c-di-AMP riboswitch aptamer (ydaO/yuaA leader): a 227-nucleotide RNA sequence from Actinomadura viridis.
The match comes from Rfam's covariance-model search (55 bits).
Gene Ontology terms of the family: regulation of gene expression and cyclic-di-AMP binding.
Lineage of the source: Bacteria > Bacillati > Actinomycetota > Actinomycetes > Actinomadura.
This family represents a conserved RNA structure found upstream of the ydaO and yuaA genes in Bacillus subtilis and related genes in other bacteria.
RNA sequence: CACAAGUCAACGCCGAAUCCGCCACCGAGCGGAGCCGGGGAACCAACGCCGGGCGAUCCGGACCUUCCGGAACACGCCCGAGCAGGGGUGAAUCGGCGCGCGGCCCACCGGAACGCACGCCCUGGACGAACGAGCCAGGUCGAGCGCACCGGCCGGGGAGCGCACCGUAGGACGACUUCCACGUCCGAAUCCGACAGCUAACCCGGUAGGCGUCUGGAAGAAGGAGU
Number, nucleotide and partner (000 for none) at each position: 001c000002a000003c000004a000005a000006g000007u000008c000009a000010a000011c212012g211013c210014c209015g000016a000017a000018u033019c032020c031021g030022c029023c000024a000025c000026c000027g000028a000029g022030c021031g020032g019033a018034g207035c206036c205037g204038g203039g202040g000041a000042a000043c000044c085045a000046a000047c000048g000049c000050c000051g000052g000053g000054c000055g000056a000057u000058c000059c000060g000061g000062a000063c000064c000065u000066u000067c000068c000069g000070g000071a000072a000073c000074a000075c000076g000077c000078c000079c000080g000081a000082g000083c000084a000085g044086g192087g191088g190089u000090g000091a000092a000093u000094c167095g166096g165097c000098g000099c000100g000101c000102g000103g000104c000105c000106c000107a000108c000109c000110g000111g000112a000113a000114c000115g000116c000117a000118c000119g000120c000121c000122c000123u000124g000125g000126a000127c000128g000129a000130a000131c000132g000133a000134g000135c000136c000137a000138g000139g000140u000141c000142g000143a000144g000145c000146g000147c000148a000149c000150c000151g000152g000153c000154c000155g000156g000157g000158g000159a000160g000161c000162g000163c000164a000165c096166c095167g094168u000169a000170g186171g185172a184173c183174g000175a000176c000177u000178u000179c000180c000181a000182c000183g173184u172185c171186c170187g000188a000189a000190u088191c087192c086193g000194a000195c000196a000197g000198c000199u000200a000201a000202c039203c038204c037205g036206g035207u034208a000209g014210g013211c012212g011213u000214c000215u000216g000217g000218a000219a000220g000221a000222a000223g000224g000225a000226g000227u000